[Rfam]
RNA: Alphaproteobacteria transfer-messenger RNA
Organism: Novosphingobium pentaromativorans
RNA sequence: UCACUUCACAUUCACGUUUGAUCGCCUAUAUGGGUCAUUGCCGGCUUCGGUCGGCUAUGACGAUAAAUUGCGGCGUGCAAUAGGCACAGCGGACCCGGGGGCGGUACCCGGCGGCUCCACCACCAACCUCGCCAAGGCGGCGUUGAUGACGGGGCCGAACUAGGAUCGACGUGUGUUGAAAAGCGGUGUUUUCGUCCGGGCUGAGUAACCCGUUCAAGGCUCAAAACUCAUAAGUGCCAACGACAACGAAGCACUUGCUCUCGCCGCGUAAUUCUAGGGCCUAACGGCCUGAAGUUACAAAGCUAGAACGCGGUUGGACCCACCGGUCAACAGAAGCGGAUUCC
Numbered sequence: 001u002c003a004c005u006u007c008a009c010a011u012u013c014a015c016g017u018u019u020g021a022u023c024g025c026c027u028a029u030a031u032g033g034g035u036c037a038u039u040g041c042c043g044g045c046u047u048c049g050g051u052c053g054g055c056u057a058u059g060a061c062g063a064u065a066a067a068u069u070g071c072g073g074c075g076u077g078c079a080a081u082a083g084g085c086a087c088a089g090c091g092g093a094c095c096c097g098g099g100g101g102c103g104g105u106a107c108c109c110g111g112c113g114g115c116u117c118c119a120c121c122a123c124c125a126a127c128c129u130c131g132c133c134a135a136g137g138c139g140g141c142g143u144u145g146a147u148g149a150c151g152g153g154g155c156c157g158a159a160c161u162a163g164g165a166u167c168g169a170c171g172u173g174u175g176u177u178g179a180a181a182a183g184c185g186g187u188g189u190u191u192u193c194g195u196c197c198g199g200g201c202u203g204a205g206u207a208a209c210c211c212g213u214u215c216a217a218g219g220c221u222c223a224a225a226a227c228u229c230a231u232a233a234g235u236g237c238c239a240a241c242g243a244c245a246a247c248g249a250a251g252c253a254c255u256u257g258c259u260c261u262c263g264c265c266g267c268g269u270a271a272u273u274c275u276a277g278g279g280c281c282u283a284a285c286g287g288c289c290u291g292a293a294g295u296u297a298c299a300a301a302g303c304u305a306g307a308a309c310g311c312g313g314u315u316g317g318a319c320c321c322a323c324c325g326g327u328c329a330a331c332a333g334a335a336g337c338g339g340a341u342u343c344c
Stems, first nucleotide, its partner, number of pairs: 040055005059196005070189003074185003085175003089172003095111005112157007197212004202223003311325004316342002319339002
Dot-bracket structure: .......................................(((((......)))))...(((((......(((.(((........(((.(((...(((((.......)))))(((((((................................)))))))............)))))).......))).)))..)))))((((.[[[....))))........]]].......................................................................................((((.[[.[[.))))............]].]]..